[Rfam]
RNA: Streptomyces RNA 2736
RNA sequence: CGCCCGGCCGGAUCCCGUGGGGGGAAUCCGAUCCGGGAUGGGGAGCGCCUCGUUGAUCGAC
Dot-bracket structure: (((((((.((((((((.....))).)))))..)))))..(((.....))).......))..